Rfam assigns this 58-nucleotide RNA sequence from Panagrellus redivivus to the family "mir-7918 microRNA precursor family". Pairs were carried over by alignment from the consensus structure, which was predicted with RNAalifold. Rfam links the family to the GO terms RISC complex and miRNA-mediated post-transcriptional gene silencing. The source organism's lineage runs through Eukaryota, Protostomia, Rhabditida, Panagrolaimidae and Panagrellus. The sequence is in the family's curated seed alignment.
RNA sequence: AUUUGGCUCUGAAAUCUUGCUGUGUCAAUUCAAUUCCAGCAAGUUCCAGAGCCUUUUG
Number, nucleotide and partner (000 for none) at each position: 001a000002u000003u000004u000005g053006g052007c051008u050009c049010u048011g047012a000013a045014a044015u000016c043017u042018u041019g040020c039021u038022g037023u000024g036025u000026c000027a000028a000029u000030u000031c000032a000033a000034u000035u000036c024037c022038a021039g020040c019041a018042a017043g016044u014045u013046c000047c011048a010049g009050a008051g007052c006053c005054u000055u000056u000057u000058g000